[Rfam]
RNA sequence: CUCUGGAGAGAGCUUCCAUGUUACGGAAGCCACCAAAGGGGAAAGCCUUUUUACAAAGGUAAAACUUUCAGGUGCAAGGACAGAG
Numbered sequence: 001c002u003c004u005g006g007a008g009a010g011a012g013c014u015u016c017c018a019u020g021u022u023a024c025g026g027a028a029g030c031c032a033c034c035a036a037a038g039g040g041g042a043a044a045g046c047c048u049u050u051u052u053a054c055a056a057a058g059g060u061a062a063a064a065c066u067u068u069c070a071g072g073u074g075c076a077a078g079g080a081c082a083g084a085g
Base pairs, nucleotide, nucleotide: 001085002084003083004082005081012030013029014028015027032073033072034071036068039067040066041065045060046059047058048057

This 85-nucleotide RNA sequence from Mesobacillus zeae belongs to the Rfam family "Glycine riboswitch aptamer". The match comes from Rfam's covariance-model search (44 bits). Rfam links the family to the GO term glycine biosynthetic process. Lineage of the source: Bacteria > Bacillati > Bacillota > Bacillaceae > Mesobacillus.